Annotation: A member of the RNA family "mir-252 microRNA precursor family" from Armadillidium nasatum, 70 nucleotides long. A reference for the family is Li et al. (2009), "Direct sequencing and expression analysis of a large number of miRNAs in Aedes aegypti and a multi-species survey of novel mosquito miRNAs", BMC Genomics. Pairs were carried over by alignment from the consensus structure, which was predicted with RNAalifold.

RNA sequence: UUUCGCUACUAAGUACUAUUGCCGCAGGAAAGAAAUUAAAGUCCUGCUGCUUCAGUACUUAUCACUGGGA
Numbered sequence: 001u002u003u004c005g006c007u008a009c010u011a012a013g014u015a016c017u018a019u020u021g022c023c024g025c026a027g028g029a030a031a032g033a034a035a036u037u038a039a040a041g042u043c044c045u046g047c048u049g050c051u052u053c054a055g056u057a058c059u060u061a062u063c064a065c066u067g068g069g070a
Stems, first nucleotide, its partner, number of pairs: 001070005007064001010061008024047006